Description
The record is a 52-nucleotide RNA from Solanum tuberosum, which matches "MIR1886 microRNA precursor family" in Rfam. Its family is annotated with RISC complex and miRNA-mediated post-transcriptional gene silencing in the Gene Ontology.
RNA sequence: UGAUAUGAAAUUAACAUUUAGAUAUGUGAUUUCAUGUUGAUUUCAUAUCAUG
Numbered sequence: 001u002g003a004u005a006u007g008a009a010a011u012u013a014a015c016a017u018u019u020a021g022a023u024a025u026g027u028g029a030u031u032u033c034a035u036g037u038u039g040a041u042u043u044c045a046u047a048u049c050a051u052g
Stems, first nucleotide, its partner, number of pairs: 001050017018029003